[Rfam]
U4 spliceosomal RNA: a 139-nucleotide sequence from Lathyrus oleraceus.
The family is grouped with related families in Rfam's "U4 clan".
Lineage of the source: Eukaryota > Streptophyta > Gunneridae > rosids > Lathyrus.
The family's consensus secondary structure is taken from published work.

RNA sequence: AUUUUUGCGCUUAGGGCAAUGAGGUUCUAUCUGAGGCGCGUCUAUUGCUGGUUGAAAACUAUUUCCAAACCCCCUCUUAGGCUUGGUUUUAACUCAAGCCUUUGAGAAUUUUUGGAAGGACUCAUUUUUGGGUAAAGUC
Numbered sequence: 001a002u003u004u005u006u007g008c009g010c011u012u013a014g015g016g017c018a019a020u021g022a023g024g025u026u027c028u029a030u031c032u033g034a035g036g037c038g039c040g041u042c043u044a045u046u047g048c049u050g051g052u053u054g055a056a057a058a059c060u061a062u063u064u065c066c067a068a069a070c071c072c073c074c075u076c077u078u079a080g081g082c083u084u085g086g087u088u089u090u091a092a093c094u095c096a097a098g099c100c101u102u103u104g105a106g107a108a109u110u111u112u113u114g115g116a117a118g119g120a121c122u123c124a125u126u127u128u129u130g131g132g133u134a135a136a137g138u139c
Stems, first nucleotide, its partner, number of pairs: 021042002024039002074106003079101007086093002119139004
About the family: U4 small nuclear RNA (U4 snRNA) is a component of the major U2-dependent spliceosome.